[Rfam]
The family of this 62-nucleotide RNA sequence from Acidothermus cellulolyticus is "Fluoride riboswitch aptamer (crcB RNA motif)". Taxonomically the source falls in Acidothermus cellulolyticus (Bacteria, Bacillati, Acidothermales, Acidothermaceae).
RNA sequence: ACUGAACGCGGCGAUGAAGCCCGCCGACAAUGCGCCGCCCGGCUGAUGGCUUCUACCGAGUU
Dot-bracket structure: .........[[[[..((((((]]]]........(((....)))....)))))).........